[Rfam]
RNA: UnaL2 LINE 3' element
RNA sequence: AGUACAAAGCAAUGUAAGUCACUUUGGAUAAAAGCGUCUGCCAAAUGCGUAAAU
Numbered sequence: 001a002g003u004a005c006a007a008a009g010c011a012a013u014g015u016a017a018g019u020c021a022c023u024u025u026g027g028a029u030a031a032a033a034g035c036g037u038c039u040g041c042c043a044a045a046u047g048c049g050u051a052a053a054u
Stems, first nucleotide, its partner, number of pairs: 013043001014041003020036001022034004